[Rfam]
RNA sequence: UUGUUUGAAUCGCUGAAUCCUUGUAAGGAGCGGGGGAACCACUUUUGUAACGUUUUGUUACUUGGGGUGAAUCCUUGAAAAAGGAGGGGCUACUCUCAUGGUCCUAAUCCGACAGCUAACCUCGUAAGCGUUUUGGGAGGAGUG
Dot-bracket structure: ..........((((...(((......)))((((((....((.....................))(((.....((((....))))..((((..........))))...))).........)))))).))))..............
This 144-nucleotide RNA sequence from [Anoxybacillus] calidus belongs to the Rfam family "c-di-AMP riboswitch aptamer (ydaO/yuaA leader)". NCBI's taxonomy places the organism under Bacteria, Bacillati, Bacillota, Bacilli, Paranoxybacillus. Rfam describes the family as follows. This family represents a conserved RNA structure found upstream of the ydaO and yuaA genes in Bacillus subtilis and related genes in other bacteria. The match comes from Rfam's covariance-model search (105 bits).